The family of this 129-nucleotide RNA from Danaus plexippus is "Small nucleolar RNA psi18S-841/snoR66". The family is grouped with related families in Rfam's "SNORA28 clan". Rfam describes the family as follows. psi18S-841 is a member of the H/ACA class of snoRNA. This family is responsible for guiding the modification of uridine 841 in Drosophila 18S rRNA to pseudouridine. It is annotated as an H/ACA-box small nucleolar RNA. Its family is annotated with RNA processing and nucleolus in the Gene Ontology.
RNA sequence: UGCAAGGGCACUCUGUGUUCAACAUAAUAAAUAUGUGAAUAACAAUUUGUUACCUUGCUAUAUAAAAUCUAUUAAUCCUAUUCCAAAUAAUUCGUUAUGAUUAUUUGGUCAUAAUGAUAGAGACAAUUC
Numbered sequence: 001u002g003c004a005a006g007g008g009c010a011c012u013c014u015g016u017g018u019u020c021a022a023c024a025u026a027a028u029a030a031a032u033a034u035g036u037g038a039a040u041a042a043c044a045a046u047u048u049g050u051u052a053c054c055u056u057g058c059u060a061u062a063u064a065a066a067a068u069c070u071a072u073u074a075a076u077c078c079u080a081u082u083c084c085a086a087a088u089a090a091u092u093c094g095u096u097a098u099g100a101u102u103a104u105u106u107g108g109u110c111a112u113a114a115u116g117a118u119a120g121a122g123a124c125a126a127u128u129c
Stems, first nucleotide, its partner, number of pairs: 002058006010050002014044003017040004022036002064128002069122002076116001083108007091100002